[Rfam]
RNA sequence: UUUUUCUGCUAGGGGAGCCAUAGGCUGAGAGAUAUCAUUGAUUGAAACCCUUUGUACCUGAUCCGGAUUAUACCGGCGUAGGGAAGCGGUCUAAAUAGCUA
Dot-bracket structure: .....(((((((((..(((...)))........(((...))).....)))).....((((..((((......))))..))))..)))))............
The family of this 101-nucleotide RNA sequence from Heyndrickxia sporothermodurans is "TPP riboswitch aptamer (THI element)". A search with the family's covariance model found it, with a score of 74 bits.